Shown here is a 103-nucleotide RNA sequence from Sulfitobacter aestuariivivens, a member of the family "Pyrrolysine insertion sequence mttB". Rfam links the family to the GO term pyrrolysine incorporation. The family's consensus secondary structure was predicted with CMfinder. It is annotated as a cis-regulatory element. The literature on the family includes a 2013 paper in BMC Bioinformatics by Theil Have et al., "Effects of using coding potential, sequence conservation and mRNA structure conservation for predicting pyrroly-sine containing genes". The family has 23 seed sequences and 416 matches in Rfam 15.1.
[Rfam]
RNA sequence: AUGACCGAUGCCAAGACACCCGAUGCCCAGGCGGGAUAUGAAAAGGGCUACACCGUUGCUCUUUCGGCUCAGGCGGGAGCGGAUAUGAUUAACCUAAGCGUUG
Numbered sequence: 001a002u003g004a005c006c007g008a009u010g011c012c013a014a015g016a017c018a019c020c021c022g023a024u025g026c027c028c029a030g031g032c033g034g035g036a037u038a039u040g041a042a043a044a045g046g047g048c049u050a051c052a053c054c055g056u057u058g059c060u061c062u063u064u065c066g067g068c069u070c071a072g073g074c075g076g077g078a079g080c081g082g083a084u085a086u087g088a089u090u091a092a093c094c095u096a097a098g099c100g101u102u103g
Base pairs, nucleotide, nucleotide: 003012025032033062034061035060077101079099080098